[Rfam]
RNA sequence: UUAAGAUGGUUUCUCUUCACAUCGUAUAAAUCUUUCACCUUUUACUAAAGAUUUCCACGGAGAGAAACGAUUCUGAGUCUUAAUCCAAUUUUUUGAGGCCUUGUUUUCUCAACAAGGCU
Numbered sequence: 001u002u003a004a005g006a007u008g009g010u011u012u013c014u015c016u017u018c019a020c021a022u023c024g025u026a027u028a029a030a031u032c033u034u035u036c037a038c039c040u041u042u043u044a045c046u047a048a049a050g051a052u053u054u055c056c057a058c059g060g061a062g063a064g065a066a067a068c069g070a071u072u073c074u075g076a077g078u079c080u081u082a083a084u085c086c087a088a089u090u091u092u093u094u095g096a097g098g099c100c101u102u103g104u105u106u107u108c109u110c111a112a113c114a115a116g117g118c119u
Stems, first nucleotide, its partner, number of pairs: 003078001009068010028054008096119001098118006
Overview: The family of this 119-nucleotide RNA sequence from Callorhinus ursinus is "U5 spliceosomal RNA". Rfam 15.1 lists 28,527 matches to the family in 2,489 species. Rfam describes the family as follows. U5 RNA is a component of both types of known spliceosome. The precise function of this molecule is unknown, though it is known that the 5' loop is required for splice site selection and p220 binding, and that both the 3' stem-loop and the Sm site are important for Sm protein binding and cap methylation. Pairs were carried over by alignment from the consensus structure, which is taken from published work.